[Rfam]
RNA sequence: ACCUGCCAUGAGCGCCGUGAGCGGCACCCAUGGCAACAGACAAAGACCGUGCCUUGGGAAGUUUCAGGCACAUAAGGGCGUU
Numbered sequence: 001a002c003c004u005g006c007c008a009u010g011a012g013c014g015c016c017g018u019g020a021g022c023g024g025c026a027c028c029c030a031u032g033g034c035a036a037c038a039g040a041c042a043a044a045g046a047c048c049g050u051g052c053c054u055u056g057g058g059a060a061g062u063u064u065c066a067g068g069c070a071c072a073u074a075a076g077g078g079c080g081u082u
Stems, first nucleotide, its partner, number of pairs: 004035007012027001014025003049071006056064001
RNA: nrdJ RNA